[Rfam]
RNA sequence: UGGCAGCAGUGAUGAUGAUGACGACAAUGUCACUCUUCCUGAUUAAAUGCUGAAGGGUUUUCAGUCACUACCUCAUCUGAGGCUGUCA
Numbered sequence: 001u002g003g004c005a006g007c008a009g010u011g012a013u014g015a016u017g018a019u020g021a022c023g024a025c026a027a028u029g030u031c032a033c034u035c036u037u038c039c040u041g042a043u044u045a046a047a048u049g050c051u052g053a054a055g056g057g058u059u060u061u062c063a064g065u066c067a068c069u070a071c072c073u074c075a076u077c078u079g080a081g082g083c084u085g086u087c088a
Stems, first nucleotide, its partner, number of pairs: 002087006
Rfam assigns this 88-nucleotide sequence from Scyliorhinus torazame to the family "Small nucleolar RNA SNORD11B". Pairs were carried over by alignment from the consensus structure, which was predicted with WAR. The family's RNA type in Rfam is C/D-box small nucleolar RNA. Lineage of the source: Eukaryota > Gnathostomata > Galeomorphii > Scyliorhinidae > Scyliorhinus. Gene Ontology terms of the family: RNA processing and nucleolus. The literature on the family includes a 2006 paper in Nucleic Acids Res by Yang et al., "snoSeeker: an advanced computational package for screening of guide and orphan snoRNA genes in the human genome".